[Rfam]
Shown here is a 138-nucleotide sequence from Upupa epops, a member of the family "Small nucleolar RNA SNORA8".

RNA sequence: GGCACUGAACGGUAUCUGCCCCCAGCAGCCGUCUCCUGGUGGGGUGUUCAAACCCAGUGCUACAGCAGUUCAGUAUGUGGCAUCGUUGGUUUGCAUUCUGCUGUGACUGUCAAACCUGGUUUUGGUGCUGGCACAGUC
Dot-bracket structure: .((((((.........(((.((((.(((.......))).).))).))....)..))))))..((.(((.((((.....(.(((...................))).)........))))..))).))...........
Gene Ontology terms of the family: nucleolus and RNA processing.
By type it is an H/ACA-box small nucleolar RNA.
The family's consensus secondary structure was predicted with RNAfold.
ACA8 is a member of the H/ACA class of snoRNA that guide the sites of modification of uridines to pseudouridines.
Taxonomically the source falls in Upupa (Eukaryota, Opisthokonta, Coraciimorphae, Bucerotiformes).
Its Rfam clan is "SNORA8 clan".